[Rfam]
The record is a 153-nucleotide RNA from Plantactinospora soyae, which matches "c-di-AMP riboswitch aptamer (ydaO/yuaA leader)" in Rfam.
The match comes from Rfam's covariance-model search (86 bits).
Taxonomically the source falls in Plantactinospora (Bacteria, Bacillati, Actinomycetes, Micromonosporaceae).
RNA sequence: CGGGCCGGACCGCUCAAUCGCAGAUCGUUGCGAGCCGGGGACCCAUUCCACACCUUGGGGUGAAUCCGUAGGACGCUUCAGGCGACCGCGGAAGGGCGCAUCUUUCCCGCCCGAACCCGUCAGCUAACCCGGUAGGCGGCAGCGGAAGGAGAA
Numbered sequence: 001c002g003g004g005c006c007g008g009a010c011c012g013c014u015c016a017a018u019c020g021c022a023g024a025u026c027g028u029u030g031c032g033a034g035c036c037g038g039g040g041a042c043c044c045a046u047u048c049c050a051c052a053c054c055u056u057g058g059g060g061u062g063a064a065u066c067c068g069u070a071g072g073a074c075g076c077u078u079c080a081g082g083c084g085a086c087c088g089c090g091g092a093a094g095g096g097c098g099c100a101u102c103u104u105u106c107c108c109g110c111c112c113g114a115a116c117c118c119g120u121c122a123g124c125u126a127a128c129c130c131g132g133u134a135g136g137c138g139g140c141a142g143c144g145g146a147a148g149g150a151g152a153a
Base pairs, nucleotide, nucleotide: 011138012137013136014135018033019032020031021030022029034133035132036131037130038129039128044057045056058118059117060116066091067090068089069088094112095111096110097109